[Rfam]
The family of this 59-nucleotide RNA sequence from Lagerstroemia villosa is "Plastid-psbA-4 3UTR RNA". NCBI's taxonomy places the organism under Eukaryota, Euphyllophyta, malvids, Lythraceae, Lagerstroemia. Plastid psbA-4 is a non-coding RNA (ncRNA) present in plastids. The family is grouped with related families in Rfam's "Plastid-psbA 3UTR RNA clan". By type it is a cis-regulatory element.
RNA sequence: AGAGUAAAGGAGCAAUAACCUCUUGUUCUAUUAAGAGUGUUGAUUAUUGCUCCUUUACU
Numbered sequence: 001a002g003a004g005u006a007a008a009g010g011a012g013c014a015a016u017a018a019c020c021u022c023u024u025g026u027u028c029u030a031u032u033a034a035g036a037g038u039g040u041u042g043a044u045u046a047u048u049g050c051u052c053c054u055u056u057a058c059u
Base pairs, nucleotide, nucleotide: 006056007055008054009053010052011051012050013049014048015047016046017045020037021036022035023034024033025032